[Rfam]
RNA sequence: UCGGAUUGAGUAUUACAUCAGGUACUGGUCCUGCAUGUGUAUACCAGUGCCUGUGUAAUACCCUGUUUGG
Numbered sequence: 001u002c003g004g005a006u007u008g009a010g011u012a013u014u015a016c017a018u019c020a021g022g023u024a025c026u027g028g029u030c031c032u033g034c035a036u037g038u039g040u041a042u043a044c045c046a047g048u049g050c051c052u053g054u055g056u057a058a059u060a061c062c063c064u065g066u067u068u069g070g
Base pairs, nucleotide, nucleotide: 001070002069003068004067005066006065010061011060012059015056016055017054018053021051022050023049024048025047026046027045028044029043
Rfam assigns this 70-nucleotide sequence from Penaeus vannamei to the family "mir-12 microRNA precursor family".
Its family is annotated with RISC complex and miRNA-mediated post-transcriptional gene silencing in the Gene Ontology.
A reference for the family is Marco et al. (2010), "Functional shifts in insect microRNA evolution", Genome Biol Evol.
NCBI's taxonomy places the organism under Eukaryota, Altocrustacea, Eumalacostraca, Penaeoidea, Penaeus.